[Rfam]
The record is a 125-nucleotide RNA sequence from Brassica oleracea, which matches "MIR9563 microRNA precursor family" in Rfam. A search with the family's covariance model found it, with a score of 105 bits. The family has 2 seed sequences and 5,832 matches in Rfam 15.1.
RNA sequence: GGAAUAUAAGAACCCGUCUCUUAACUUUUAACUAAAAAAAUUAAAAAUCGGUUUUUAAAACUUUUAUUUAAGAACUAGUUCUUAGUCUUUUUAGUUAAAAGUUAAGAGACGAGAUCUUAUAUUCC
Number, nucleotide and partner (000 for none) at each position: 001g125002g124003a123004a122005u121006a120007u119008a118009a117010g116011a115012a000013c113014c000015c111016g110017u109018c108019u107020c106021u105022u104023a103024a102025c101026u100027u099028u098029u097030a096031a095032c094033u093034a092035a091036a090037a089038a088039a000040a000041u085042u084043a083044a082045a000046a080047a079048u000049c000050g000051g000052u000053u000054u000055u000056u000057a000058a000059a000060a000061c000062u000063u000064u000065u000066a000067u000068u000069u000070a000071a000072g000073a000074a000075c000076u000077a000078g000079u047080u046081c000082u044083u043084a042085g041086u000087c000088u038089u037090u036091u035092u034093a033094g032095u031096u030097a029098a028099a027100a026101g025102u024103u023104a022105a021106g020107a019108g018109a017110c016111g015112a000113g013114a000115u011116c010117u009118u008119a007120u006121a005122u004123u003124c002125c001